RNA sequence: UUACCUUGUGGAGCUCUGUCUGUGACUUGUGUAGUUUUAUAAUAAAUCACAUCACAGGCAGAGUUCUAGUUAGGUGA
Numbered sequence: 001u002u003a004c005c006u007u008g009u010g011g012a013g014c015u016c017u018g019u020c021u022g023u024g025a026c027u028u029g030u031g032u033a034g035u036u037u038u039a040u041a042a043u044a045a046a047u048c049a050c051a052u053c054a055c056a057g058g059c060a061g062a063g064u065u066c067u068a069g070u071u072a073g074g075u076g077a
Stems, first nucleotide, its partner, number of pairs: 004074003009068008020057006029050003

A member of the RNA family "mir-11 microRNA precursor family" from Cotesia congregata, 77 nucleotides long.
The match comes from Rfam's covariance-model search (63 bits).
Rfam links the family to the GO terms negative regulation of apoptotic process, cellular response to gamma radiation and RISC complex.